[Rfam]
RNA sequence: GUCCUGACUGGAAGUAGGACAAACUCUUGCGAAGGCAAGGGCUGGGGAUUGGUCAUCCUCGGCAAAUAUUAACAGAGCACAUGACCUCGCUCAUCCCCC
Dot-bracket structure: ((((((........))))))....((((((....))))))((((((((.......))))))))..........(((((..........)))).).....
Numbered sequence: 001g002u003c004c005u006g007a008c009u010g011g012a013a014g015u016a017g018g019a020c021a022a023a024c025u026c027u028u029g030c031g032a033a034g035g036c037a038a039g040g041g042c043u044g045g046g047g048a049u050u051g052g053u054c055a056u057c058c059u060c061g062g063c064a065a066a067u068a069u070u071a072a073c074a075g076a077g078c079a080c081a082u083g084a085c086c087u088c089g090c091u092c093a094u095c096c097c098c099c
Stems, first nucleotide, its partner, number of pairs: 001020006025040006041063008074094001075092004

This 99-nucleotide RNA sequence from Hallella bergensis belongs to the Rfam family "engA RNA". By type it is a cis-regulatory element. The sequence is in the family's curated seed alignment. NCBI's taxonomy places the organism under Bacteria, Pseudomonadati, Bacteroidia, Hallella, Hallella bergensis.